[Rfam]
RNA sequence: AGAGAACGCUCUGGAAAAUUCUUAAGUGAAUGCCGAAGGUGCAAGAUUACAAAUGUUUCGCAAGUAACAUAGCGAUUCGCAGAGCAACAAGCAUUUCGCAUGAAACAUGUGCGCUGCGUAUUUGUAAUCGAAUCUCUCAGGCAAAAAGACGGAGAAUUCUGC
Numbered sequence: 001a002g003a004g005a006a007c008g009c010u011c012u013g014g015a016a017a018a019u020u021c022u023u024a025a026g027u028g029a030a031u032g033c034c035g036a037a038g039g040u041g042c043a044a045g046a047u048u049a050c051a052a053a054u055g056u057u058u059c060g061c062a063a064g065u066a067a068c069a070u071a072g073c074g075a076u077u078c079g080c081a082g083a084g085c086a087a088c089a090a091g092c093a094u095u096u097c098g099c100a101u102g103a104a105a106c107a108u109g110u111g112c113g114c115u116g117c118g119u120a121u122u123u124g125u126a127a128u129c130g131a132a133u134c135u136c137u138c139a140g141g142c143a144a145a146a147a148g149a150c151g152g153a154g155a156a157u158u159c160u161g162c
Base pairs, nucleotide, nucleotide: 006157009154010153011152012151013150019030020029021028032142033141034140035138036137039136041134045129046128047127048126049125050124051123052122053121054120055119056118
A member of the RNA family "Glycine riboswitch aptamer" from Umbribacter vaginalis, 162 nucleotides long. A search with the family's covariance model found it, with a score of 42 bits.